RNA: c-di-AMP riboswitch aptamer (ydaO/yuaA leader)
Organism: Conexibacter woesei
RNA sequence: GUUACAUACGAGCCGAAUCGCGGGCCCUCUGAGGCCUGCGAGCGGGGGACCCAUUGGUCCCGAGGACCGGGGGCGAAUCGCCGCGAGUGCGGCGUAGCGCGACCGAACCAUGGCUGCGCGAGCCCGUCAGCUCACCUCGCAGGCUCUCUGAGACAGGAGCA
Numbered sequence: 001g002u003u004a005c006a007u008a009c010g011a012g013c014c015g016a017a018u019c020g021c022g023g024g025c026c027c028u029c030u031g032a033g034g035c036c037u038g039c040g041a042g043c044g045g046g047g048g049a050c051c052c053a054u055u056g057g058u059c060c061c062g063a064g065g066a067c068c069g070g071g072g073g074c075g076a077a078u079c080g081c082c083g084c085g086a087g088u089g090c091g092g093c094g095u096a097g098c099g100c101g102a103c104c105g106a107a108c109c110a111u112g113g114c115u116g117c118g119c120g121a122g123c124c125c126g127u128c129a130g131c132u133c134a135c136c137u138c139g140c141a142g143g144c145u146c147u148c149u150g151a152g153a154c155a156g157g158a159g160c161a
Stems, first nucleotide, its partner, number of pairs: 011145004018041009042140006052070001071125003079094004097119004